RNA sequence: UUCUGCUUCAAUUCCGUAGUGCAUUGCAGUGUUUGCUUCAGGUCUGCAAGCAGUGCGGAAGUGAGGUGGAAGA
Numbered sequence: 001u002u003c004u005g006c007u008u009c010a011a012u013u014c015c016g017u018a019g020u021g022c023a024u025u026g027c028a029g030u031g032u033u034u035g036c037u038u039c040a041g042g043u044c045u046g047c048a049a050g051c052a053g054u055g056c057g058g059a060a061g062u063g064a065g066g067u068g069g070a071a072g073a
Stems, first nucleotide, its partner, number of pairs: 006066005013059005020052003024049005